The family of this 66-nucleotide sequence from Brugia malayi is "mir-5881 microRNA precursor family". Its family is annotated with miRNA-mediated post-transcriptional gene silencing and RISC complex in the Gene Ontology. The family has 2 seed sequences and 6 matches in Rfam 15.1. The base pairs follow the family's consensus structure, which was predicted with RNAalifold.
RNA sequence: GAAAUUAGGACAACUACGACACUAAGGGCGACUUUUGCGCCCUUAGUGUCGUAGUUGUCCGAUUUU
Number, nucleotide and partner (000 for none) at each position: 001g000002a065003a064004a063005u000006u000007a000008g060009g059010a058011c057012a056013a055014c054015u053016a052017c051018g050019a049020c048021a047022c046023u045024a044025a043026g042027g041028g040029c039030g038031a000032c037033u000034u000035u000036u000037g032038c030039g029040c028041c027042c026043u025044u024045a023046g022047u021048g020049u019050c018051g017052u016053a015054g014055u013056u012057g011058u010059c009060c008061g000062a000063u004064u003065u002066u000